[Rfam]
RNA sequence: AAUUGCAUAACGGGGAGCUUGUAGCAGCAGGCUGAGAGGAAGUCAUCAACUUCGACCCAUAUACCUGAUUUGGAUAAUGCCAACGUAGGAAUCAUAGGAUCUGUAUUU
Number, nucleotide and partner (000 for none) at each position: 001a000002a000003u000004u000005g000006c000007a095008u094009a000010a092011c000012g058013g057014g056015g000016a000017g032018c031019u030020u029021g028022u000023a000024g000025c000026a000027g000028c021029a020030g019031g018032c017033u000034g000035a000036g000037a000038g000039g053040a052041a051042g050043u049044c000045a000046u000047c000048a000049a043050c042051u041052u040053c039054g000055a000056c014057c013058c012059a000060u000061a000062u000063a000064c089065c088066u087067g086068a000069u000070u083071u082072g081073g080074a000075u000076a000077a000078u000079g000080c073081c072082a071083a070084c000085g000086u067087a066088g065089g064090a000091a000092u010093c000094a008095u007096a000097g000098g000099a000100u000101c000102u000103g000104u000105a000106u000107u000108u000

Rfam assigns this 108-nucleotide sequence from Lachnospiraceae bacterium KHCPX20 to the family "TPP riboswitch aptamer (THI element)". The match comes from Rfam's covariance-model search (64 bits). From the family's description: Vitamin B(1) in its active form thiamin pyrophosphate (TPP) is an essential coenzyme that is synthesised by coupling of pyrimidine and thiazole moieties in bacteria. The base pairs follow the family's consensus structure, which is taken from published work.